Description:
A member of the RNA family "L17-Actino-Proteobacteria ribosomal protein leader" from Streptomyces bingchenggensis, 56 nucleotides long. The organism belongs to Streptomyces bingchenggensis, within Bacteria.
[Rfam]
RNA sequence: CCGGCGGGCACUCGCCCGUCGGUAACUGACACCGGUACCUCAUACGGCCGGUGCAG
Numbered sequence: 001c002c003g004g005c006g007g008g009c010a011c012u013c014g015c016c017c018g019u020c021g022g023u024a025a026c027u028g029a030c031a032c033c034g035g036u037a038c039c040u041c042a043u044a045c046g047g048c049c050g051g052u053g054c055a056g
Base pairs, nucleotide, nucleotide: 001022002021003020004019005018006017007016008015009014026056027055028054030053031052032051033050034049035048036047
Rfam's curators put it in the seed alignment.